[Rfam]
RNA sequence: UAGGACUCCCUUCGUUUCCUUUCCCAUUUUGCCUCAAGCAUCGAAUAAGUUUGCGAGCAAAACAUAACCGGGCAAAUGUUACAAGAGAAAAUACAUGAUUUGGGAUCUUCUUGGAUGGAUUUGUUUACAUAUUUCUUUACUCAUUUUUUGAGGAUCAAUACAAUAUUCUUGUCCCAUCCUUGCUAAAGUAAAGAACGGGCAUUAAUUUCCGAACAGAAAGAAUUGUGUGUUCACUUUAUGGUUUUCGCAUUGUACUUUUCCUACUUGCAUUAGCAGUUGUUUGGCUCACUACUUUUUUCGAUGCUCACGAAUAAUUUUU
Numbered sequence: 001u002a003g004g005a006c007u008c009c010c011u012u013c014g015u016u017u018c019c020u021u022u023c024c025c026a027u028u029u030u031g032c033c034u035c036a037a038g039c040a041u042c043g044a045a046u047a048a049g050u051u052u053g054c055g056a057g058c059a060a061a062a063c064a065u066a067a068c069c070g071g072g073c074a075a076a077u078g079u080u081a082c083a084a085g086a087g088a089a090a091a092u093a094c095a096u097g098a099u100u101u102g103g104g105a106u107c108u109u110c111u112u113g114g115a116u117g118g119a120u121u122u123g124u125u126u127a128c129a130u131a132u133u134u135c136u137u138u139a140c141u142c143a144u145u146u147u148u149u150g151a152g153g154a155u156c157a158a159u160a161c162a163a164u165a166u167u168c169u170u171g172u173c174c175c176a177u178c179c180u181u182g183c184u185a186a187a188g189u190a191a192a193g194a195a196c197g198g199g200c201a202u203u204a205a206u207u208u209c210c211g212a213a214c215a216g217a218a219a220g221a222a223u224u225g226u227g228u229g230u231u232c233a234c235u236u237u238a239u240g241g242u243u244u245u246c247g248c249a250u251u252g253u254a255c256u257u258u259u260c261c262u263a264c265u266u267g268c269a270u271u272a273g274c275a276g277u278u279g280u281u282u283g284g285c286u287c288a289c290u291a292c293u294u295u296u297u298u299c300g301a302u303g304c305u306c307a308c309g310a311a312u313a314a315u316u317u318u319u
Stems, first nucleotide, its partner, number of pairs: 038304007080254005085248001087246001094240005101233004149157003158228007166219002169216004265276004

Shown here is a 319-nucleotide part of an RNA from Saccharomyces pastorianus, a member of the family "Saccharomyces telomerase". By type it is a non-coding RNA gene. The family's consensus secondary structure is taken from published work.